[Rfam]
RNA sequence: GGAGGGAUCGACCCUCCGGAGUCUGCCUGCAGGGGCCGGCUUCAAACCGCCCUCGUGCGGCAUUGGCUGAAGACCGUUGUCGUGAGCGUCGAGGGAGAGGCGGGUCCACUUUAUGAAUAACCACGG
Numbered sequence: 001g002g003a004g005g006g007a008u009c010g011a012c013c014c015u016c017c018g019g020a021g022u023c024u025g026c027c028u029g030c031a032g033g034g035g036c037c038g039g040c041u042u043c044a045a046a047c048c049g050c051c052c053u054c055g056u057g058c059g060g061c062a063u064u065g066g067c068u069g070a071a072g073a074c075c076g077u078u079g080u081c082g083u084g085a086g087c088g089u090c091g092a093g094g095g096a097g098a099g100g101c102g103g104g105u106c107c108a109c110u111u112u113a114u115g116a117a118u119a120a121c122c123a124c125g126g
Stems, first nucleotide, its partner, number of pairs: 001017005018043006025036004050095002053092003057083002060080003064076003100124001102122002105119001
RNA: Group II catalytic intron D1-D4-2